[Rfam]
RNA sequence: UAUGGGGAAGCCGAAAACCUUAAAAAGAGUAGGCG
Numbered sequence: 001u002a003u004g005g006g007g008a009a010g011c012c013g014a015a016a017a018c019c020u021u022a023a024a025a026a027g028a029g030u031a032g033g034c035g
Stems, first nucleotide, its partner, number of pairs: 002021001004019002010034003